[Rfam]
Shown here is a 335-nucleotide part of an RNA from Clostridiaceae bacterium 14S0207, a member of the family "Bacterial large subunit ribosomal RNA". Rfam 15.1 lists 51,934 matches to the family in 10,816 species. The organism belongs to Clostridiaceae, within Bacteria. It scores 2941 bits against the family's covariance model. The base pairs follow the family's consensus structure, which is taken from published work. Its family is annotated with ribosome and structural constituent of ribosome in the Gene Ontology.

RNA sequence: CGGAAGAAUUGUUGUUAAGGAACUAGGCAAAUUGACCCCGUAACUUCGGGAGAAGGGGUGCCUAUAGAAAUAUAGGUCGCAGAGAAUAGGCUCAGGCAACUGUUUAACAAAAACACAGGUCUCUGCUAAAGCGUAAGCUGAUGUAUAGGGGCUGACACCUGCCCGGUGCUGGAAGGUUAAGGGGAUUUGUAAGCGUAAGCGAAGCAAUGAACUUAAGCCCCAGUAAACGGCGGCCGUAACUAUAACGGUCCUAAGGUAGCGAAAUUCCUUGUCGGGUAAGUUCCGACCCGCACGAAUGGUGUAAUGAUCUGAGCACUGUCUCAACAACAAAUCCG
Numbered sequence: 001c002g003g004a005a006g007a008a009u010u011g012u013u014g015u016u017a018a019g020g021a022a023c024u025a026g027g028c029a030a031a032u033u034g035a036c037c038c039c040g041u042a043a044c045u046u047c048g049g050g051a052g053a054a055g056g057g058g059u060g061c062c063u064a065u066a067g068a069a070a071u072a073u074a075g076g077u078c079g080c081a082g083a084g085a086a087u088a089g090g091c092u093c094a095g096g097c098a099a100c101u102g103u104u105u106a107a108c109a110a111a112a113a114c115a116c117a118g119g120u121c122u123c124u125g126c127u128a129a130a131g132c133g134u135a136a137g138c139u140g141a142u143g144u145a146u147a148g149g150g151g152c153u154g155a156c157a158c159c160u161g162c163c164c165g166g167u168g169c170u171g172g173a174a175g176g177u178u179a180a181g182g183g184g185a186u187u188u189g190u191a192a193g194c195g196u197a198a199g200c201g202a203a204g205c206a207a208u209g210a211a212c213u214u215a216a217g218c219c220c221c222a223g224u225a226a227a228c229g230g231c232g233g234c235c236g237u238a239a240c241u242a243u244a245a246c247g248g249u250c251c252u253a254a255g256g257u258a259g260c261g262a263a264a265u266u267c268c269u270u271g272u273c274g275g276g277u278a279a280g281u282u283c284c285g286a287c288c289c290g291c292a293c294g295a296a297u298g299g300u301g302u303a304a305u306g307a308u309c310u311g312a313g314c315a316c317u318g319u320c321u322c323a324a325c326a327a328c329a330a331a332u333c334c335g
Base pairs, nucleotide, nucleotide: 001335002334003333004332009330010329011328012327013326014325015324016323018321019320020319035059036058037057038056039055044049060077061076062075063074064073065072066071078082090314091313092312093311094310095309096308097306098305101115102114103113118153119152120151121150122149123148124147125146126143130139131138132137156301157300158299159298161231162230163229166228167227168224169223170222171221172220175219176218177217181213182212187207188206189205190204193200194199232250233249234248235247236246237245251255261288271287272286273285274284275283276282